[Rfam]
RNA sequence: GCGGAGGGCCGGAUGACCGCGGGGGUGCGAACCCACGAGGAAAGUCCGGACUCCACAAGACGAUGGUGCCGGGUAACGCCCGGGCAGGGAAACCUGACGGAAAGCGCCACAGAAAACAGACUACCCCGGCUUGUCCGGGGAAAAGGUGAAACGGUGGGGUAAGAGCCCACCGGGGGGCUGGCAACAGCCCCCGCACGGCAAGCCCCACCAGGAGCAAUGCCGAAUAGGAUCCCCGCGCGGGCUGAUCGGGCAACCGAUAUCGCUGCAGGGCAUGUCUUGGCCCAGGGGAUCGGGUAGGCAGCUGGAGGGGCACCGGCAACGGUGCCCUUAGAUGAAUGGUCAUCCAGAGGGGGCAACCCCUUGGACAGAAUCCGGCUUACAGGCCCUCCGCGCAU
Numbered sequence: 001g002c003g004g005a006g007g008g009c010c011g012g013a014u015g016a017c018c019g020c021g022g023g024g025g026u027g028c029g030a031a032c033c034c035a036c037g038a039g040g041a042a043a044g045u046c047c048g049g050a051c052u053c054c055a056c057a058a059g060a061c062g063a064u065g066g067u068g069c070c071g072g073g074u075a076a077c078g079c080c081c082g083g084g085c086a087g088g089g090a091a092a093c094c095u096g097a098c099g100g101a102a103a104g105c106g107c108c109a110c111a112g113a114a115a116a117c118a119g120a121c122u123a124c125c126c127c128g129g130c131u132u133g134u135c136c137g138g139g140g141a142a143a144a145g146g147u148g149a150a151a152c153g154g155u156g157g158g159g160u161a162a163g164a165g166c167c168c169a170c171c172g173g174g175g176g177g178c179u180g181g182c183a184a185c186a187g188c189c190c191c192c193g194c195a196c197g198g199c200a201a202g203c204c205c206c207a208c209c210a211g212g213a214g215c216a217a218u219g220c221c222g223a224a225u226a227g228g229a230u231c232c233c234c235g236c237g238c239g240g241g242c243u244g245a246u247c248g249g250g251c252a253a254c255c256g257a258u259a260u261c262g263c264u265g266c267a268g269g270g271c272a273u274g275u276c277u278u279g280g281c282c283c284a285g286g287g288g289a290u291c292g293g294g295u296a297g298g299c300a301g302c303u304g305g306a307g308g309g310g311c312a313c314c315g316g317c318a319a320c321g322g323u324g325c326c327c328u329u330a331g332a333u334g335a336a337u338g339g340u341c342a343u344c345c346a347g348a349g350g351g352g353g354c355a356a357c358c359c360c361u362u363g364g365a366c367a368g369a370a371u372c373c374g375g376c377u378u379a380c381a382g383g384c385c386c387u388c389c390g391c392g393c394a395u
Stems, first nucleotide, its partner, number of pairs: 001391010011380001012344007020037002023034004042378003046375005051214004059277001064210005069083005084098001085096004099205002104203002106199003121145002124140006153171006172194001173192008218300004228291006268282002271279002308327008
This 395-nucleotide sequence from Lutimaribacter saemankumensis belongs to the Rfam family "Bacterial RNase P class A". Its family is annotated with dimeric ribonuclease P complex, ribonuclease P activity and tRNA processing in the Gene Ontology. It is annotated as a ribozyme. Pairs were carried over by alignment from the consensus structure, which is taken from published work. A search with the family's covariance model found it, with a score of 294 bits. On this family, see Frank and Pace, Annu Rev Biochem 1998: "Ribonuclease P: unity and diversity in a tRNA processing ribozyme". The organism belongs to Lutimaribacter, within Bacteria.